The family of this 70-nucleotide RNA sequence from Megalops atlanticus is "mir-24 microRNA precursor family".
NCBI's taxonomy places the organism under Eukaryota, Chordata, Craniata, Elopomorpha, Megalops.
Rfam links the family to the GO terms miRNA-mediated post-transcriptional gene silencing and RISC complex.
The literature on the family includes a 2001 paper in Science by Lagos-Quintana et al., "Identification of novel genes coding for small expressed RNAs".
The match comes from Rfam's covariance-model search (82 bits).
This family represents the microRNA (miRNA) mir-24 family. miRNAs are transcribed as ~70nt precursors (modelled here) and subsequently processed by the Dicer enzyme to give a ~22nt product. In this case the mature sequence comes from the 3' arm of the precursor. The extents of the hairpin precursors are not generally known and are estimated based on hairpin prediction.
Nucleotides: 070
Base pairs, nucleotide, nucleotide: 003070004069005068006067008065009064011062012061013060015058016057017056018055019054020053021052022051023050027047028046029045030044
Number, partner (000 for none) and nucleotide at each position: 001000a002000c003070c004069u005068c006067c007000u008065g009064u010000g011062c012061c013060u014000a015058c016057u017056g018055a019054g020053c021052u022051g023050a024000u025000a026000a027047c028046a029045g030044u031000c032000g033000a034000u035000g036000u037000a038000a039000u040000g041000a042000g043000c044030a045029c046028u047027g048000g049000c050023u051022c052021a053020g054019u055018u056017c057016a058015g059000c060013a061012g062011g063000a064009a065008c066000c067006g068005g069004a070003g